A member of the RNA family "msiK RNA" from Bombiscardovia coagulans, 60 nucleotides long.
Nucleotides: 060
Base pairs, nucleotide, nucleotide: 010052011051013049014048015047016046028045029044030043031042032041033040
Number, partner (000 for none) and nucleotide at each position: 001000a002000g003000u004000g005000g006000a007000a008000a009000u010052u011051c012000c013049u014048u015047c016046a017000c018000u019000a020000c021000g022000g023000a024000u025000c026000g027000u028045u029044c030043g031042g032041c033040a034000c035000g036000u037000a038000c039000c040033u041032g042031c043030c044029g045028a046016u047015g048014a049013a050000a051011g052010g053000a054000u055000a056000a057000u058000u059000c060000a
Pairs were carried over by alignment from the consensus structure, which is taken from published work.
The organism belongs to Bombiscardovia, within Bacteria.
It scores 60 bits against the family's covariance model.
Rfam classes the family as a cis-regulatory element.